[Rfam]
RNA sequence: CCUGCAAGUGUGCCAGCUUGCAGAACAUGCCUUGAGUAAACGCCUAGAUGUUGUAGGCAUUCUGGCUAGGGCUUGGCAACCCGACCUUUAAAGAGAGUGAAAGCAAGUAAAGCAGACCGUGCAUGUUAGGUUUGUGUGAUUGUGAGUAGUGCGGGCCACAGCGUAGACCACUGUGGC
Numbered sequence: 001c002c003u004g005c006a007a008g009u010g011u012g013c014c015a016g017c018u019u020g021c022a023g024a025a026c027a028u029g030c031c032u033u034g035a036g037u038a039a040a041c042g043c044c045u046a047g048a049u050g051u052u053g054u055a056g057g058c059a060u061u062c063u064g065g066c067u068a069g070g071g072c073u074u075g076g077c078a079a080c081c082c083g084a085c086c087u088u089u090a091a092a093g094a095g096a097g098u099g100a101a102a103g104c105a106a107g108u109a110a111a112g113c114a115g116a117c118c119g120u121g122c123a124u125g126u127u128a129g130g131u132u133u134g135u136g137u138g139a140u141u142g143u144g145a146g147u148a149g150u151g152c153g154g155g156c157c158a159c160a161g162c163g164u165a166g167a168c169c170a171c172u173g174u175g176g177c
Stems, first nucleotide, its partner, number of pairs: 002023007012077004026125005064087002067084001069082003073078001099150001103143004108138001110137001112135007155177006

The record is a 177-nucleotide RNA from Acinetobacter sp. NBRC 100985, which matches "Pseudomonadales-1 RNA" in Rfam. The organism belongs to Acinetobacter, within Bacteria. The family's consensus secondary structure is taken from published work. By type it is a small RNA.